[Rfam]
RNA sequence: AAGACUAUAUGGUAGCUUUGGUAUCUCGCGUCAACAUUGAUUUCUCCUGAAUUGUGCCUCGGUGAGUUCCGAGGUUUUU
Numbered sequence: 001a002a003g004a005c006u007a008u009a010u011g012g013u014a015g016c017u018u019u020g021g022u023a024u025c026u027c028g029c030g031u032c033a034a035c036a037u038u039g040a041u042u043u044c045u046c047c048u049g050a051a052u053u054g055u056g057c058c059u060c061g062g063u064g065a066g067u068u069c070c071g072a073g074g075u076u077u078u079u
Stems, first nucleotide, its partner, number of pairs: 054075001057074006
RNA: Photosynthesis regulatory RNA1